RNA: Glycine riboswitch aptamer
RNA sequence: GAUAUCGAAACGGGAGAACCGGCCAUGCCGGUGCCGAAGGAGCAACCGCCCCGGAAACUCUCAGGCCAAAGGACCGCUUCGAUAUC
Numbered sequence: 001g002a003u004a005u006c007g008a009a010a011c012g013g014g015a016g017a018a019c020c021g022g023c024c025a026u027g028c029c030g031g032u033g034c035c036g037a038a039g040g041a042g043c044a045a046c047c048g049c050c051c052c053g054g055a056a057a058c059u060c061u062c063a064g065g066c067c068a069a070a071g072g073a074c075c076g077c078u079u080c081g082a083u084a085u086c
Stems, first nucleotide, its partner, number of pairs: 006081004011076003019031004033066003036062002040060003046054002